[Rfam]
RNA sequence: CCGUGACGCCGGGCCCCUCUGACGGUCAGCUAGACCGCCAUGUCGGAGUCACUUU
Numbered sequence: 001c002c003g004u005g006a007c008g009c010c011g012g013g014c015c016c017c018u019c020u021g022a023c024g025g026u027c028a029g030c031u032a033g034a035c036c037g038c039c040a041u042g043u044c045g046g047a048g049u050c051a052c053u054u055u
Stems, first nucleotide, its partner, number of pairs: 006049002009046004023037005